[Rfam]
RNA sequence: GUGGCCAUCAAAGUGGAGGCCCUCUCUGACCUAGAACUGAGAAAGUGCUUCCACUUUGUGCGCCGU
Number, nucleotide and partner (000 for none) at each position: 001g000002u000003g000004g063005c062006c000007a000008u000009c058010a057011a056012a055013g054014u053015g052016g051017a050018g049019g048020c047021c000022c045023u044024c000025u042026c041027u040028g000029a000030c000031c000032u000033a000034g000035a000036a000037c000038u000039g000040a027041g026042a025043a000044a023045g022046u000047g020048c019049u018050u017051c016052c015053a014054c013055u012056u011057u010058g009059u000060g000061c000062g005063c004064c000065g000066u000